Overview: msiK RNA: a 59-nucleotide sequence from Kineococcus xinjiangensis. The base pairs follow the family's consensus structure, which is taken from published work. The family's RNA type in Rfam is cis-regulatory element. It scores 55 bits against the family's covariance model.
RNA sequence: CCGGGACUCCACUUCACGACGGAUCGUCCGGCACGUACCUGCCGGUGAAGGGACCUCAC
Numbered sequence: 001c002c003g004g005g006a007c008u009c010c011a012c013u014u015c016a017c018g019a020c021g022g023a024u025c026g027u028c029c030g031g032c033a034c035g036u037a038c039c040u041g042c043c044g045g046u047g048a049a050g051g052g053a054c055c056u057c058a059c
Base pairs, nucleotide, nucleotide: 010052012050013049014048015047016046028045029044030043031042032041033040